RNA sequence: CCUCUUUAAAUUCACGCACUUGAUCCUUAUAUUCAGGCUGUUGCUUCGGCAACUAUGGCAAUAAAUGGCCUUUGUAAUAAGCCUAUCGGACCCGGGGGCGGUACCCGGCGCCUCCACCACAAGCACCGUUGAGUUCAUUUGACAGCGGUGUUUUUGAUGGGGGCGAAACAGGAUCGACGAGGGUGUAAAGAUUGUGUUUUUGCUCGGCAUUGUACCACCGUUAUCGGGCUAAUUUAGUAGUUGCAAACGACAACUAUGCAGGCUCCCGUCUCGCUGCUGCCUAAGCAGUGCGACAAGCCACUUAAAGCCCUAGCCGGUAUGCUCGGUUAGGCGGGGUCCUGGGGGCACCUGGCAACAGAAGCCCUCGCC
Numbered sequence: 001c002c003u004c005u006u007u008a009a010a011u012u013c014a015c016g017c018a019c020u021u022g023a024u025c026c027u028u029a030u031a032u033u034c035a036g037g038c039u040g041u042u043g044c045u046u047c048g049g050c051a052a053c054u055a056u057g058g059c060a061a062u063a064a065a066u067g068g069c070c071u072u073u074g075u076a077a078u079a080a081g082c083c084u085a086u087c088g089g090a091c092c093c094g095g096g097g098g099c100g101g102u103a104c105c106c107g108g109c110g111c112c113u114c115c116a117c118c119a120c121a122a123g124c125a126c127c128g129u130u131g132a133g134u135u136c137a138u139u140u141g142a143c144a145g146c147g148g149u150g151u152u153u154u155u156g157a158u159g160g161g162g163g164c165g166a167a168a169c170a171g172g173a174u175c176g177a178c179g180a181g182g183g184u185g186u187a188a189a190g191a192u193u194g195u196g197u198u199u200u201u202g203c204u205c206g207g208c209a210u211u212g213u214a215c216c217a218c219c220g221u222u223a224u225c226g227g228g229c230u231a232a233u234u235u236a237g238u239a240g241u242u243g244c245a246a247a248c249g250a251c252a253a254c255u256a257u258g259c260a261g262g263c264u265c266c267c268g269u270c271u272c273g274c275u276g277c278u279g280c281c282u283a284a285g286c287a288g289u290g291c292g293a294c295a296a297g298c299c300a301c302u303u304a305a306a307g308c309c310c311u312a313g314c315c316g317g318u319a320u321g322c323u324c325g326g327u328u329a330g331g332c333g334g335g336g337u338c339c340u341g342g343g344g345g346c347a348c349c350u351g352g353c354a355a356c357a358g359a360a361g362c363c364c365u366c367g368c369c
Stems, first nucleotide, its partner, number of pairs: 040053005057204005067197001070194001073191001082183003086180003092108005109165007205220003210231001212229001215227002334350004341366006
RNA: Alphaproteobacteria transfer-messenger RNA